[Rfam]
The family of this 115-nucleotide sequence from Bactrocera dorsalis is "Potassium channel RNA editing signal".
Its family is annotated with adenosine to inosine editing in the Gene Ontology.
Rfam's curators write: This family represents a group of sequences related to the human potassium channel Kv1.1 hairpin element which directs the efficient modification of an adenosine to inosine by an adenosine deaminase acting on RNA (ADAR).
The family has 85 seed sequences and 14,095 matches in Rfam 15.1.

RNA sequence: UUGCAGUUAUGGUGACAUGGUGCCUGAAACUAUUGCUGGAAAAAUCGUUGGUGGCGUUUGUUCUCUCAGUGGAGUUCUUGUGAUCGCUUUACCUGUUCCCGUUAUUGUUUCAAAU
Numbered sequence: 001u002u003g004c005a006g007u008u009a010u011g012g013u014g015a016c017a018u019g020g021u022g023c024c025u026g027a028a029a030c031u032a033u034u035g036c037u038g039g040a041a042a043a044a045u046c047g048u049u050g051g052u053g054g055c056g057u058u059u060g061u062u063c064u065c066u067c068a069g070u071g072g073a074g075u076u077c078u079u080g081u082g083a084u085c086g087c088u089u090u091a092c093c094u095g096u097u098c099c100c101g102u103u104a105u106u107g108u109u110u111c112a113a114a115u
Base pairs, nucleotide, nucleotide: 002114006111009108010107011106012105014103015102016101019098020097022096023095038078039077040076041075050064051063